RNA: c-di-AMP riboswitch aptamer (ydaO/yuaA leader)
RNA sequence: CACCCAUCACCACUCAUCCACGCAUGGCAGGAGCGGGGGACCCAGGUAAGCCGCCCGGUCCGUCCUUCCCCAACGGACCGGCUAGGGGUGAAGCCGCGCACAGUCACCGGCGAACGCCGGACGACGCGCGCGGCCGGGCAUCUCCAGCCCGAACCCGACAGCUCACCUCGCAGGCGCUGGAGAGGAAUUCA
Numbered sequence: 001c002a003c004c005c006a007u008c009a010c011c012a013c014u015c016a017u018c019c020a021c022g023c024a025u026g027g028c029a030g031g032a033g034c035g036g037g038g039g040a041c042c043c044a045g046g047u048a049a050g051c052c053g054c055c056c057g058g059u060c061c062g063u064c065c066u067u068c069c070c071c072a073a074c075g076g077a078c079c080g081g082c083u084a085g086g087g088g089u090g091a092a093g094c095c096g097c098g099c100a101c102a103g104u105c106a107c108c109g110g111c112g113a114a115c116g117c118c119g120g121a122c123g124a125c126g127c128g129c130g131c132g133g134c135c136g137g138g139c140a141u142c143u144c145c146a147g148c149c150c151g152a153a154c155c156c157g158a159c160a161g162c163u164c165a166c167c168u169c170g171c172a173g174g175c176g177c178u179g180g181a182g183a184g185g186a187a188u189u190c191a
Stems, first nucleotide, its partner, number of pairs: 008176001010174002017032003033171006043085001086156003094133006136150004
Dot-bracket structure: .......(.((.....(((..........)))((((((....(.........................................)(((.....((((((............................))))))..((((.......))))...))).........)))))).)).)...............